RNA sequence: UACCUAUCCACUUCACUACGGAUCGUCCGGCACGUACCUGCCGGUGAAGGGAACACAGC
Dot-bracket structure: ........(.(((((...........((((((......))))))))))).)........

The record is a 59-nucleotide RNA sequence from Phytoactinopolyspora mesophila, which matches "msiK RNA" in Rfam. The match comes from Rfam's covariance-model search (59 bits). Pairs were carried over by alignment from the consensus structure, which is taken from published work.